[Rfam]
RNA sequence: UAUUGGUCCCCUCGCAACGAUAAUCUGUGAACCCCGCCAGGCCCGGAAGGGAGCAACGGUAGCAGACGACUCGUGUGCCGGGGUGUGGCUGAUAGAG
Numbered sequence: 001u002a003u004u005g006g007u008c009c010c011c012u013c014g015c016a017a018c019g020a021u022a023a024u025c026u027g028u029g030a031a032c033c034c035c036g037c038c039a040g041g042c043c044c045g046g047a048a049g050g051g052a053g054c055a056a057c058g059g060u061a062g063c064a065g066a067c068g069a070c071u072c073g074u075g076u077g078c079c080g081g082g083g084u085g086u087g088g089c090u091g092a093u094a095g096a097g
Stems, first nucleotide, its partner, number of pairs: 004091005010083005015075001017074004024066005034059003042051003